[Rfam]
RNA sequence: AAAAAUUACAUAAGACUAGCUCGUAUAAUAGCUGGAAUAUGGCCAGCGAGUUUCUACCGGAUUACCAUAAAUUUUCCGACUACGAGUAAGCUCAUUUGGUUU
Numbered sequence: 001a002a003a004a005a006u007u008a009c010a011u012a013a014g015a016c017u018a019g020c021u022c023g024u025a026u027a028a029u030a031g032c033u034g035g036a037a038u039a040u041g042g043c044c045a046g047c048g049a050g051u052u053u054c055u056a057c058c059g060g061a062u063u064a065c066c067a068u069a070a071a072u073u074u075u076c077c078g079a080c081u082a083c084g085a086g087u088a089a090g091c092u093c094a095u096u097u098g099g100u101u102u
Stems, first nucleotide, its partner, number of pairs: 019087007029049001031047005058078004064072001
Purine riboswitch aptamer: a 102-nucleotide RNA from Schinkia azotoformans. Rfam describes the family as follows. Riboswitches are metabolite binding domains within certain messenger RNAs that serve as precision sensors for their corresponding targets. Allosteric rearrangement of mRNA structure is mediated by ligand binding, and this results in modulation of gene expression. A class of riboswitches that selectively recognises guanine and becomes saturated at concentrations as low as 5 nM. In Bacillus subtilis, this mRNA motif is located on at least five separate transcriptional units that together encode 17 genes that are mostly involved in purine transport and purine nucleotide biosynthesis. It has also been shown that some members of this family are specific for adenine instead. Hence this family are termed purine riboswitches.